[Rfam]
Nucleotides: 196
Base pairs, nucleotide, nucleotide: 001017002016003015004014005013020191021190022189023188024187027062028061040056041055042054043053044052045051065124066123067122068121069120070119072083073082074081076113077112078111079110085100086099087098088097089096090095103118104117105116106115107114128164129163130162131161132160133159134158137153138152139151140150145177146176147175148174166186167185168184169183170182
Number, partner (000 for none) and nucleotide at each position: 001017u002016g003015u004014g005013c006000c007000u008000g009000a010000u011000c012000a013005g014004c015003a016002c017001a018000c019000u020191g021190g022189g023188a024187g025000u026000g027062a028061c029000u030000g031000a032000a033000u034000a035000a036000a037000c038000u039000u040056a041055c042054u043053g044052g045051c046000a047000u048000a049000u050000a051045g052044c053043u054042g055041g056040u057000u058000a059000a060000g061028g062027u063000g064000a065124u066123a067122c068121a069120u070119u071000a072083g073082a074081g075000g076113u077112g078111g079110u080000g081074c082073u083072c084000g085100c086099u087098g088097u089096c090095a091000g092000c093000a094000a095090u096089g097088a098087c099086a100085g101000a102000a103118c104117u105116a106115c107114u108000c109000a110079a111078c112077c113076a114107a115106g116105u117104a118103g119070a120069a121068u122067g123066u124065a125000g126000g127000c128164a129163g130162a131161g132160a133159a134158g135000u136000u137153u138152u139151u140150c141000u142000a143000a144000u145177c146176u147175g148174u149000a150140g151139a152138a153137a154000u155000g156000c157000c158134c159133u160132u161131c162130u163129c164128u165000u166186g167185u168184u169183g170182g171000u172000a173000u174148a175147c176146a177145g178000g179000a180000u181000u182170c183169c184168a185167a186166c187024c188023u189022c190021c191020c192000u193000c194000u195000u196000u

Shown here is a 196-nucleotide RNA, a member of the family "manA RNA". By type it is a cis-regulatory element. manA RNA has been located in 5'UTR regions of genes of mannose or fructose metabolism. Has been proposed as a cis-regulatory element and as a riboswitch candidate for his complex secondary structure.